[Rfam]
The record is a 255-nucleotide RNA from Sporosarcina sp. Te-1, which matches "BsrG" in Rfam. The organism belongs to Sporosarcina, within Bacteria. A reference for the family is Jahn et al. (2015), "Against the mainstream: the membrane-associated type I toxin BsrG from Bacillus subtilis interferes with cell envelope biosynthesis without increasing membrane permeability", Mol Microbiol. About the family: bsrE, bsrG and bsrH pair through intermolecular interactions with antisense sRNAs. They form type I toxin/antitoxin system that includes an mRNA encoding for a short, toxic peptide (bsrE, bsrG and bsrH) and an antitoxin that is comprised of an antisense RNA. bsrG encodes a 39-amino-acid toxin, and the 180 nucleotide antisense sRNA called SR4 acts as the antitoxin (they overlap by 123 nucleotides). SR4 interaction with the 3'UTR of bsrG RNA promotes bsrG degradation and inhibits its translation. BsrG interferes with cell envelope biosynthesis, causes membrane invaginations and delocalisation of the cell wall synthesis and initiates autolysis. bsrE RNA encodes 30 amino-acid toxin peptide. Its antitoxin gene, SR5 overlaps by 112 nucleotides at the 3' end of bsrE. SR5 also overlaps bsrG from nucleotide 163 to 52 (Rfam overlap check). The antitoxin SR5 promotes bsrE degradation but unlike SR4 it does not directly inhibits toxin mRNA translation. Pairs were carried over by alignment from the consensus structure, which was predicted with WAR.
RNA sequence: GUAAUGGCAUGGUGACUCAAGGGUGGUUGGCCAUCUCUAUUCCCUCGCGGAAAGGGGGUGGUGCGUUUGACAGUAUUCGAAGCGCUAAUGCUCGUCUUUACAUUUGCGACGCUAAUCAUUGCAAUGCUGUCGUUUCACAACAACAAAUAACCCAUCCUUGAGUUGAGCGCUCGGAUGGGUUACAGCCUAUCUUUGCCGAUCCCCGGUGGGAACCUGCUAUUUACACGGGCCGUUCAAUGUGCAGCCAUUGGACGG
Numbered sequence: 001g002u003a004a005u006g007g008c009a010u011g012g013u014g015a016c017u018c019a020a021g022g023g024u025g026g027u028u029g030g031c032c033a034u035c036u037c038u039a040u041u042c043c044c045u046c047g048c049g050g051a052a053a054g055g056g057g058g059u060g061g062u063g064c065g066u067u068u069g070a071c072a073g074u075a076u077u078c079g080a081a082g083c084g085c086u087a088a089u090g091c092u093c094g095u096c097u098u099u100a101c102a103u104u105u106g107c108g109a110c111g112c113u114a115a116u117c118a119u120u121g122c123a124a125u126g127c128u129g130u131c132g133u134u135u136c137a138c139a140a141c142a143a144c145a146a147a148u149a150a151c152c153c154a155u156c157c158u159u160g161a162g163u164u165g166a167g168c169g170c171u172c173g174g175a176u177g178g179g180u181u182a183c184a185g186c187c188u189a190u191c192u193u194u195g196c197c198g199a200u201c202c203c204c205g206g207u208g209g210g211a212a213c214c215u216g217c218u219a220u221u222u223a224c225a226c227g228g229g230c231c232g233u234u235c236a237a238u239g240u241g242c243a244g245c246c247a248u249u250g251g252a253c254g255g
Base pairs, nucleotide, nucleotide: 001224002223003222005216007214010198011197012196013195014194016162017161018160019159020158021157022156023155025152026151027150028149037061038060039059041057042056043055044054045053069131070130071129072128073127074126075125082096084095105123106122107121108120200211201210202209203208230255231254232253233252234251235250236249237248238247239246